[Rfam]
RNA sequence: UGGUAGAUGCACCCUGAUUAUUCGUCCCUGACUUGCCUUGUAGUAAGUUGGGGCUUUUUAU
Numbered sequence: 001u002g003g004u005a006g007a008u009g010c011a012c013c014c015u016g017a018u019u020a021u022u023c024g025u026c027c028c029u030g031a032c033u034u035g036c037c038u039u040g041u042a043g044u045a046a047g048u049u050g051g052g053g054c055u056u057u058u059u060a061u
Stems, first nucleotide, its partner, number of pairs: 002013003026053011
Dot-bracket structure: .(((......)))............(((((((((((......)))))))))))........

Shown here is a 61-nucleotide sequence from Chamaesiphon minutus, a member of the family "Nitrogen stress-induced RNA 1". By type it is a small RNA. Taxonomically the source falls in Chamaesiphon minutus (Bacteria, Bacillati, Cyanobacteriota, Chamaesiphon). The family has 17 seed sequences and 962 matches in Rfam 15.1.